Shown here is a 78-nucleotide RNA sequence from Flavobacterium kingsejongi, a member of the family "Flavo-1 RNA". The match comes from Rfam's covariance-model search (70 bits).

RNA sequence: AUGUAGCCCUGAUAGAACCGGUAUCCUUUCCUCUUGUCCUUUACAAGGGGAAAGAUAUAGGGGAUAGCAGGAACCGGC
Number, nucleotide and partner (000 for none) at each position: 001a000002u000003g000004u000005a000006g000007c000008c000009c070010u069011g068012a000013u066014a065015g000016a000017a000018c061019c060020g000021g000022u000023a056024u055025c054026c000027u000028u000029u051030c050031c049032u048033c047034u046035u045036g044037u000038c000039c000040u000041u000042u000043a000044c036045a035046a034047g033048g032049g031050g030051a029052a000053a000054g025055a024056u023057a000058u000059a000060g019061g018062g000063g000064a000065u014066a013067g000068c011069a010070g009071g000072a000073a000074c000075c000076g000077g000078c000